Description: The family of this 69-nucleotide RNA sequence from Mola mola is "miR-430 microRNA precursor family".
RNA sequence: AACAUUACCCACACAAAAACACUGGCUUGAAUUUGUCUCUAGUAAGUGCUAUUUGUUAGGGUUGCGCUG
Numbered sequence: 001a002a003c004a005u006u007a008c009c010c011a012c013a014c015a016a017a018a019a020c021a022c023u024g025g026c027u028u029g030a031a032u033u034u035g036u037c038u039c040u041a042g043u044a045a046g047u048g049c050u051a052u053u054u055g056u057u058a059g060g061g062u063u064g065c066g067c068u069g
Base pairs, nucleotide, nucleotide: 005064007062008061009060010059013056014055015054016053017052018050020048021047022046023045025043026042027041
Its Rfam clan is "mir-290 clan". Rfam 15.1 lists 24,817 matches to the family in 105 species. For this family Rfam cites "MicroRNAs regulate brain morphogenesis in zebrafish" (Giraldez et al., Science, 2005). Gene Ontology terms of the family: miRNA-mediated post-transcriptional gene silencing and RISC complex. Lineage of the source: Eukaryota > Clupeocephala > Euteleosteomorpha > Acanthomorphata > Mola. It scores 51 bits against the family's covariance model.